[Rfam]
RNA sequence: UGGAGGCUUGAAAAAGUUUGGACGUUGUACAGUACUUCCAUAACUGGUUAUAACCUCCAAGACUAAAUCUCAAUCACUGUAUUCAUACCUGAAACUUCAUCUCAGACUAUGUGCUAUGGUUGAGGACAUUUG
Number, nucleotide and partner (000 for none) at each position: 001u000002g058003g057004a056005g055006g054007c000008u000009u000010g000011a000012a000013a000014a000015a045016g044017u043018u042019u040020g039021g038022a037023c000024g035025u034026u000027g000028u000029a000030c000031a000032g000033u000034a025035c024036u000037u022038c021039c020040a019041u000042a018043a017044c016045u015046g000047g000048u000049u000050a000051u000052a000053a000054c006055c005056u004057c003058c002059a000060a000061g000062a000063c000064u000065a000066a000067a000068u000069c124070u123071c122072a000073a000074u000075c119076a000077c000078u116079g115080u000081a000082u000083u000084c111085a110086u109087a000088c000089c000090u000091g000092a000093a000094a000095c000096u000097u000098c000099a000100u000101c000102u000103c000104a000105g000106a000107c000108u000109a086110u085111g084112u000113g000114c000115u079116a078117u000118g000119g075120u000121u000122g071123a070124g069125g000126a000127c000128a000129u000130u000131u000132g000

A member of the RNA family "Small nucleolar RNA SNORA47" from Ameiurus melas, 132 nucleotides long. Pairs were carried over by alignment from the consensus structure, which was predicted with WAR. Rfam classes the family as an H/ACA-box small nucleolar RNA. On this family, see Huttenhofer et al., EMBO J 2001: "RNomics: an experimental approach that identifies 201 candidates for novel, small, non-messenger RNAs in mouse".